The family of this 106-nucleotide RNA from Noviherbaspirillum sedimenti is "ZMP/ZTP riboswitch aptamer (pfl RNA motif)". The family's consensus secondary structure is taken from published work.

RNA sequence: UUCGUCUCACGUGACUGGCGAAAAACCGGAAUACGCAUUCCGGUGACAAGGUGGAUAUCCACCGGGGAACGUGAGAUUUCUUCCGCCGUUCGCCUGGGCAGCCCAA
Numbered sequence: 001u002u003c004g005u006c007u008c009a010c011g012u013g014a015c016u017g018g019c020g021a022a023a024a025a026c027c028g029g030a031a032u033a034c035g036c037a038u039u040c041c042g043g044u045g046a047c048a049a050g051g052u053g054g055a056u057a058u059c060c061a062c063c064g065g066g067g068a069a070c071g072u073g074a075g076a077u078u079u080c081u082u083c084c085g086c087c088g089u090u091c092g093c094c095u096g097g098g099c100a101g102c103c104c105a106a
Stems, first nucleotide, its partner, number of pairs: 004077009015066002017094005051062004083101001085099003